[Rfam]
RNA sequence: AGGACGUGAGGAACGGUUAAAACUUGCUUAUGCGAGAAGAUCGUUCUGCCCAAAGCCUGUUACGACAACUGGACGCUCUCUUUUGUUACAUCUGAUCCC
Numbered sequence: 001a002g003g004a005c006g007u008g009a010g011g012a013a014c015g016g017u018u019a020a021a022a023c024u025u026g027c028u029u030a031u032g033c034g035a036g037a038a039g040a041u042c043g044u045u046c047u048g049c050c051c052a053a054a055g056c057c058u059g060u061u062a063c064g065a066c067a068a069c070u071g072g073a074c075g076c077u078c079u080c081u082u083u084u085g086u087u088a089c090a091u092c093u094g095a096u097c098c099c
Stems, first nucleotide, its partner, number of pairs: 002098003016089002023036005038079003042075004057071001059069002
Record summary: This 99-nucleotide RNA from Brassica oleracea belongs to the Rfam family "Small nucleolar RNA Z279/snoR105/snoR108". Gene Ontology terms of the family: RNA processing and nucleolus. Rfam classes the family as a C/D-box small nucleolar RNA. The literature on the family includes a 2002 paper in Curr Biol by Marker et al., "Experimental RNomics: identification of 140 candidates for small non-messenger RNAs in the plant Arabidopsis thaliana". Rfam's curators write: This family includes the plant snoRNAs known as Z279, snoR105 and snoR108. Its Rfam clan is "snoU13 clan".